[Rfam]
RNA: serC leader
RNA sequence: CGGCGGGACACCUCCCCCCAACGGGAGGCAGCUAUCUGAAAGGGUAGAGACA
Numbered sequence: 001c002g003g004c005g006g007g008a009c010a011c012c013u014c015c016c017c018c019c020a021a022c023g024g025g026a027g028g029c030a031g032c033u034a035u036c037u038g039a040a041a042g043g044g045u046a047g048a049g050a051c052a
Stems, first nucleotide, its partner, number of pairs: 011028006032047006